The family of this 72-nucleotide sequence from Andreprevotia lacus is "tRNA". Clan: tRNA clan. It is annotated as a transfer RNA. The match comes from Rfam's covariance-model search (70 bits). NCBI's taxonomy places the organism under Bacteria, Pseudomonadati, Betaproteobacteria, Neisseriales, Andreprevotia lacus.
Nucleotides: 072
Base pairs, nucleotide, nucleotide: 001071002070003069004068005067006066007065010024011023012022013021026042027041028040029039030038048064049063050062051061052060
Number, partner (000 for none) and nucleotide at each position: 001071c002070u003069c004068g005067a006066a007065a008000u009000a010024g011023c012022u013021c014000a015000g016000u017000g018000g019000u020000a021013g022012a023011g024010c025000g026042g027041c028040c029039g030038g031000c032000u033000c034000u035000u036000a037000a038030c039029c040028g041027g042026c043000u044000g045000g046000a047000c048064g049063c050062a051061g052060g053000u054000u055000c056000g057000a058000g059000c060052c061051c062050u063049g064048c065007u066006u067005u068004c069003g070002a071001g072000g